[Rfam]
RNA sequence: UCAGAUGGCUGGAUGGCCGCUCUCCGGGUAACCGGGGGGAGGAAAGUCCGGGCUCCACGGAAAUACGGUGCCGGAUAACGUCCGGCGGGGGAAACCCCAGGGAAAGUGCCACAGAAAGCAAACCGCCGGCUCAAGCGGCCCCUCACGGGACCGCCGGCAGGCAAGGGUGAAAGGGUGCGGUAAGAGCGCACCGCGCGCCCGGCAACGGGAGCGGCACGGCAAACCCCACCGGGAGCAAGACCAAGUAGGGACGGCAUGCCGGUCGGAAAGCCCGUCAGGGCUUGAUUGGCAAGGCGCAUUUCCGCGCUGUCGUCCGGGUCGGUCGCGCGAGGCGUCCGGUAACGGGCGUCCCAGAUGAAUGGCCAUCCAUCCGCCCUCGGGCGGGGGACAGAACCCGGCUUAUAGGCCAUCUGACGCA
Numbered sequence: 001u002c003a004g005a006u007g008g009c010u011g012g013a014u015g016g017c018c019g020c021u022c023u024c025c026g027g028g029u030a031a032c033c034g035g036g037g038g039g040a041g042g043a044a045a046g047u048c049c050g051g052g053c054u055c056c057a058c059g060g061a062a063a064u065a066c067g068g069u070g071c072c073g074g075a076u077a078a079c080g081u082c083c084g085g086c087g088g089g090g091g092a093a094a095c096c097c098c099a100g101g102g103a104a105a106g107u108g109c110c111a112c113a114g115a116a117a118g119c120a121a122a123c124c125g126c127c128g129g130c131u132c133a134a135g136c137g138g139c140c141c142c143u144c145a146c147g148g149g150a151c152c153g154c155c156g157g158c159a160g161g162c163a164a165g166g167g168u169g170a171a172a173g174g175g176u177g178c179g180g181u182a183a184g185a186g187c188g189c190a191c192c193g194c195g196c197g198c199c200c201g202g203c204a205a206c207g208g209g210a211g212c213g214g215c216a217c218g219g220c221a222a223a224c225c226c227c228a229c230c231g232g233g234a235g236c237a238a239g240a241c242c243a244a245g246u247a248g249g250g251a252c253g254g255c256a257u258g259c260c261g262g263u264c265g266g267a268a269a270g271c272c273c274g275u276c277a278g279g280g281c282u283u284g285a286u287u288g289g290c291a292a293g294g295c296g297c298a299u300u301u302c303c304g305c306g307c308u309g310u311c312g313u314c315c316g317g318g319u320c321g322g323u324c325g326c327g328c329g330a331g332g333c334g335u336c337c338g339g340u341a342a343c344g345g346g347c348g349u350c351c352c353a354g355a356u357g358a359a360u361g362g363c364c365a366u367c368c369a370u371c372c373g374c375c376c377u378c379g380g381g382c383g384g385g386g387g388a389c390a391g392a393a394c395c396c397g398g399c400u401u402a403u404a405g406g407c408c409a410u411c412u413g414a415c416g417c418a
Stems, first nucleotide, its partner, number of pairs: 001414010011403001012367007020039008044401003048398005053235004062301002066231005071085005086100001087098004101226002106224002108220003123166002125162003129158003174192006193215001194213003198209004239324004249315006293308005331350008
This 418-nucleotide RNA from Telmatospirillum siberiense belongs to the Rfam family "Bacterial RNase P class A". Its family is annotated with tRNA processing, ribonuclease P activity and dimeric ribonuclease P complex in the Gene Ontology. It is annotated as a ribozyme.